[Rfam]
RNA sequence: UUUUUAUGAUGAUAAAAUUUGUCAAUGCAAGUAGGGACAUGAGAAUAUUAAAUAUGUUCGUCUUUAAUUUGUCUGAAAAAA
Numbered sequence: 001u002u003u004u005u006a007u008g009a010u011g012a013u014a015a016a017a018u019u020u021g022u023c024a025a026u027g028c029a030a031g032u033a034g035g036g037a038c039a040u041g042a043g044a045a046u047a048u049u050a051a052a053u054a055u056g057u058u059c060g061u062c063u064u065u066a067a068u069u070u071g072u073c074u075g076a077a078a079a080a081a
Base pairs, nucleotide, nucleotide: 001081002080003079004078
small nucleolar RNA snoR22: an 81-nucleotide RNA from Plasmodium ovale.
A reference for the family is Chakrabarti et al. (2007), "Structural RNAs of known and unknown function identified in malaria parasites by comparative genomics and RNA analysis", RNA.
Rfam classes the family as a C/D-box small nucleolar RNA.